[Rfam]
RNA: Lysine riboswitch aptamer
RNA sequence: AUCGAAAGAAGAGGACGCGACUAACAAUAGUAGUUCAACCAAGACGGGUAAUCGUCAGGGCGGUUGAAUGAACGGGGCAGUCGCCGAAAUCGCGCUAGCGUUUACCAGCUAGCCGGUUGGGCCUUGGUUGAAUAAAUCAAGGACUGUCGCAACUCAGGAGCGAGUUGCGGGGCGCUAUCGACGAU
Numbered sequence: 001a002u003c004g005a006a007a008g009a010a011g012a013g014g015a016c017g018c019g020a021c022u023a024a025c026a027a028u029a030g031u032a033g034u035u036c037a038a039c040c041a042a043g044a045c046g047g048g049u050a051a052u053c054g055u056c057a058g059g060g061c062g063g064u065u066g067a068a069u070g071a072a073c074g075g076g077g078c079a080g081u082c083g084c085c086g087a088a089a090u091c092g093c094g095c096u097a098g099c100g101u102u103u104a105c106c107a108g109c110u111a112g113c114c115g116g117u118u119g120g121g122c123c124u125u126g127g128u129u130g131a132a133u134a135a136a137u138c139a140a141g142g143a144c145u146g147u148c149g150c151a152a153c154u155c156a157g158g159a160g161c162g163a164g165u166u167g168c169g170g171g172g173c174g175c176u177a178u179c180g181a182c183g184a185u
Base pairs, nucleotide, nucleotide: 008178010176011175017084018083019082020081021080022079025076033069034068035067036066037065038064039063040062088118089117090116091115092114094113095112096111097110098109099108119145120144122142123141124140125139126138127137128136129135147170148169149168150167151166152165153164